[Rfam]
RNA: Alphaproteobacterial ar14
RNA sequence: GAAUUUCGAGGAAGCGCUCUCCUCCUCCCUGCGCAGCCUCGAUCUAGCUGGAUUGGCUUCUCCUCCUCCCAAGCCUCCAGCCCUUAAAAAUGACGCCCACCGGAUCUCCUCCCCCGGUGGGCGUUAUUU
Numbered sequence: 001g002a003a004u005u006u007c008g009a010g011g012a013a014g015c016g017c018u019c020u021c022c023u024c025c026u027c028c029c030u031g032c033g034c035a036g037c038c039u040c041g042a043u044c045u046a047g048c049u050g051g052a053u054u055g056g057c058u059u060c061u062c063c064u065c066c067u068c069c070c071a072a073g074c075c076u077c078c079a080g081c082c083c084u085u086a087a088a089a090a091u092g093a094c095g096c097c098c099a100c101c102g103g104a105u106c107u108c109c110u111c112c113c114c115c116g117g118u119g120g121g122c123g124u125u126a127u128u129u
Base pairs, nucleotide, nucleotide: 007041008040009039011037014034015033016032017031047081048080049079050078051077052076055075056074057073058072093124094123095122096121097120098119099118100117101116102115103114